[Rfam]
Rfam assigns this 65-nucleotide sequence to the family "RAGATH-18 RNA".
By type it is a small RNA.
About the family: Actinobacteria, Firmicutes, Fusobacteria, Thermotogae (1 example).

RNA sequence: CCUUUGGAGAGUUAUAAAAAAACUGUAAUAGCUUUUUAGUGAAACAGAACUCGUUGAACAAGGAA
Number, nucleotide and partner (000 for none) at each position: 001c063002c062003u061004u060005u000006g000007g000008a000009g052010a051011g050012u049013u048014a000015u000016a000017a000018a000019a000020a000021a000022a000023c047024u046025g045026u000027a000028a000029u000030a000031g040032c039033u038034u000035u000036u000037u000038a033039g032040u031041g000042a000043a000044a000045c025046a024047g023048a013049a012050c011051u010052c009053g000054u000055u000056g000057a000058a000059c000060a004061a003062g002063g001064a000065a000